Rfam assigns this 90-nucleotide sequence from Malurus cyaneus to the family "rpsL sRNA".
Lineage of the source: Eukaryota > Metazoa > Bilateria > Craniata > Malurus cyaneus.
The match comes from Rfam's covariance-model search (37 bits).

RNA sequence: UUGGCUCUCAUUUUGGAUUGGAAAGAGUUUAGUGUUUUGAUACUGCAUUCCAAAACAUAAAAUUUGCUGGGGUUUUUCCUCCUAAUCCAA
Number, nucleotide and partner (000 for none) at each position: 001u000002u000003g000004g000005c000006u000007c000008u000009c000010a000011u000012u085013u084014u000015g082016g081017a080018u000019u000020g078021g077022a076023a075024a074025g073026a000027g000028u000029u000030u045031a044032g043033u042034g041035u040036u000037u000038u000039g000040a035041u034042a033043c032044u031045g030046c000047a000048u000049u071050c070051c069052a068053a000054a000055a000056c000057a000058u000059a000060a000061a000062a000063u000064u000065u000066g000067c000068u052069g051070g050071g049072g000073u025074u024075u023076u022077u021078c020079c000080u017081c016082c015083u000084a013085a012086u000087c000088c000089a000090a000